The record is a 135-nucleotide RNA from bacterium HR29, which matches "c-di-AMP riboswitch aptamer (ydaO/yuaA leader)" in Rfam. Its family is annotated with cyclic-di-AMP binding and regulation of gene expression in the Gene Ontology.

[Rfam]
RNA sequence: ACCACGUUCUUGCCGAAUCCCGGCACCGCCGGGAACGGGGGACCCACCACAUGGGGUGAAUUGCGCAAGAGGCGCAUAGGCGACUUCCGACGCCGAACCCGUCAGCUAACCCCGUAGGCGUUCGGGAGGCUUGGC
Numbered sequence: 001a002c003c004a005c006g007u008u009c010u011u012g013c014c015g016a017a018u019c020c021c022g023g024c025a026c027c028g029c030c031g032g033g034a035a036c037g038g039g040g041g042a043c044c045c046a047c048c049a050c051a052u053g054g055g056g057u058g059a060a061u062u063g064c065g066c067a068a069g070a071g072g073c074g075c076a077u078a079g080g081c082g083a084c085u086u087c088c089g090a091c092g093c094c095g096a097a098c099c100c101g102u103c104a105g106c107u108a109a110c111c112c113c114g115u116a117g118g119c120g121u122u123c124g125g126g127a128g129g130c131u132u133g134g135c
Stems, first nucleotide, its partner, number of pairs: 011120004018034005035115006045053002054100003062076004079094004